Record summary:
The record is a 116-nucleotide RNA from Galbibacter orientalis, which matches "SAM riboswitch aptamer (S box leader)" in Rfam.
RNA sequence: AUGUUAUCAAGAAAGGCGGAAGGAAUAGACCUGAAGAUGCCUUAGCAACCCUUUGUCUCGAGGAAACUCAGAUUGAGAAGGUGCUACAUUCUACCACGUAAGUGGAUAGAUAACAA
Numbered sequence: 001a002u003g004u005u006a007u008c009a010a011g012a013a014a015g016g017c018g019g020a021a022g023g024a025a026u027a028g029a030c031c032u033g034a035a036g037a038u039g040c041c042u043u044a045g046c047a048a049c050c051c052u053u054u055g056u057c058u059c060g061a062g063g064a065a066a067c068u069c070a071g072a073u074u075g076a077g078a079a080g081g082u083g084c085u086a087c088a089u090u091c092u093a094c095c096a097c098g099u100a101a102g103u104g105g106a107u108a109g110a111u112a113a114c115a116a
Stems, first nucleotide, its partner, number of pairs: 002115007013043005021032003026093004044085004049081002051077003089108001094105004
Source information:
The base pairs follow the family's consensus structure, which is taken from published work. The source organism's lineage runs through Bacteria, Pseudomonadati, Flavobacteriia, Flavobacteriaceae and Galbibacter orientalis.